Background:
Shown here is a 105-nucleotide RNA sequence from Papaver somniferum, a member of the family "Small nucleolar RNA snoR109". The family has 6 seed sequences and 680 matches in Rfam 15.1. Rfam links the family to the GO terms RNA processing and nucleolus. The match comes from Rfam's covariance-model search (77 bits). By type it is an H/ACA-box small nucleolar RNA. The base pairs follow the family's consensus structure, which was predicted with WAR.

[Rfam]
RNA sequence: CGGCUGUAGCUAAACUAAGGAAAAGAAGUUUACUGGCCGGUUGUUGCAGAGAUAUUCUUUAUCUCUUUUUAAUCGACAAAUCUGCUUACCGAACUUCUCACAAUC
Numbered sequence: 001c002g003g004c005u006g007u008a009g010c011u012a013a014a015c016u017a018a019g020g021a022a023a024a025g026a027a028g029u030u031u032a033c034u035g036g037c038c039g040g041u042u043g044u045u046g047c048a049g050a051g052a053u054a055u056u057c058u059u060u061a062u063c064u065c066u067u068u069u070u071a072a073u074c075g076a077c078a079a080a081u082c083u084g085c086u087u088a089c090c091g092a093a094c095u096u097c098u099c100a101c102a103a104u105c
Base pairs, nucleotide, nucleotide: 024098025097026096027095028094029093030092035086036085037084039082040081041080042079043077044076045075046074